Annotation:
Rfam assigns this 67-nucleotide RNA sequence from Bacillus sp. J14TS2 to the family "Bacillaceae-1 RNA". The source organism's lineage runs through Bacteria, Bacillota, Bacilli, Caryophanales and Bacillus. By type it is a small RNA.

RNA sequence: GAUUAUGGAUCAAAGGCUAAAUACGCGCCGUCCUGGCGCAAUGCCUUUGUGACCAACAUCCUGUUGA
Numbered sequence: 001g002a003u004u005a006u007g008g009a010u011c012a013a014a015g016g017c018u019a020a021a022u023a024c025g026c027g028c029c030g031u032c033c034u035g036g037c038g039c040a041a042u043g044c045c046u047u048u049g050u051g052a053c054c055a056a057c058a059u060c061c062u063g064u065u066g067a
Base pairs, nucleotide, nucleotide: 011049012048013047014046015045016044017043025039026038027037028036029035054066055065056064057063